[Rfam]
RNA sequence: ACAAAAGCUUUGACCGGGAAAAGUAGGGCCCACAGGCCGUCCCUUGGCAGAGAGCGCGGGCAAGGUGCAAGCCGCGCGGGGGGCCGGGCCGCGAAGAACACCCGUGAGCUUCCGCCUGAACCCGCCUGGCAACAGCGGCAGUAGGGCCGGACGGCAGCCGCACGUUACGCGGCGGCGCUUUCAACGAGGAAAGCCAUGAGCGGCUGGCAGGAGCCUUUCUGCCGGCAACACAGGUGGCACCACGGAUACGGCAGCAUUCGUCCUGAAA
Numbered sequence: 001a002c003a004a005a006a007g008c009u010u011u012g013a014c015c016g017g018g019a020a021a022a023g024u025a026g027g028g029c030c031c032a033c034a035g036g037c038c039g040u041c042c043c044u045u046g047g048c049a050g051a052g053a054g055c056g057c058g059g060g061c062a063a064g065g066u067g068c069a070a071g072c073c074g075c076g077c078g079g080g081g082g083g084c085c086g087g088g089c090c091g092c093g094a095a096g097a098a099c100a101c102c103c104g105u106g107a108g109c110u111u112c113c114g115c116c117u118g119a120a121c122c123c124g125c126c127u128g129g130c131a132a133c134a135g136c137g138g139c140a141g142u143a144g145g146g147c148c149g150g151a152c153g154g155c156a157g158c159c160g161c162a163c164g165u166u167a168c169g170c171g172g173c174g175g176c177g178c179u180u181u182c183a184a185c186g187a188g189g190a191a192a193g194c195c196a197u198g199a200g201c202g203g204c205u206g207g208c209a210g211g212a213g214c215c216u217u218u219c220u221g222c223c224g225g226c227a228a229c230a231c232a233g234g235u236g237g238c239a240c241c242a243c244g245g246a247u248a249c250g251g252c253a254g255c256a257u258u259c260g261u262c263c264u265g266a267a268a
Stems, first nucleotide, its partner, number of pairs: 007109002015104004026092001027090005041080003054077006112150002114147004152164002203226009231265004242261005

Shown here is a 268-nucleotide RNA sequence from Faecalibacterium sp. An121, a member of the family "T-box leader". By type it is a cis-regulatory leader. The organism belongs to Faecalibacterium, within Bacteria.